Overview:
A member of the RNA family "Small nucleolar RNA SNORA75", 142 nucleotides long.

RNA sequence: CACUUCUCAAUGAGCUCCUUCCUGCCGACAUAUCCAUGGCAGCCUAUGGAUUCGCACGAGAAGGACAUAAACAGCUCAGUAGUGGCACGCUCACAACCUGGUUAUACAUCAGUUGUGAUUAACCACUUACUGUUCUACAAGU
Dot-bracket structure: ..((((((.....(((((...(((((...........))))).....)))...))..))))))..............((.(............(....((......))...).....................)))......
Rfam links the family to the GO terms RNA processing and nucleolus. It is annotated as an H/ACA-box small nucleolar RNA. The base pairs follow the family's consensus structure, which was predicted with PFOLD. Rfam's curators put it in the seed alignment.